mir-3492 microRNA precursor family: a 78-nucleotide RNA from Schistosoma bovis. Rfam 15.1 lists 21,496 matches to the family in 13 species. Taxonomically the source falls in Schistosoma (Eukaryota, Opisthokonta, Platyhelminthes, Schistosomatoidea). The family's consensus secondary structure was predicted with RNAalifold.
[Rfam]
RNA sequence: AGCAUUCUGGAUCCGUACAGAGAUUUCGUCAGACACCAACCCAUUAGGGCUAAUCAGACUUCCAAGAUAAGUGAAGUU
Number, nucleotide and partner (000 for none) at each position: 001a000002g077003c076004a000005u074006u073007c000008u071009g000010g000011a068012u067013c066014c000015g000016u064017a000018c000019a000020g061021a060022g059023a000024u058025u057026u056027c000028g054029u053030c000031a000032g000033a000034c000035a000036c000037c000038a000039a000040c000041c000042c000043a000044u000045u000046a000047g000048g000049g000050c000051u000052a000053a029054u028055c000056a026057g025058a024059c022060u021061u020062c000063c000064a016065a000066g013067a012068u011069a000070a000071g008072u000073g006074a005075a000076g003077u002078u000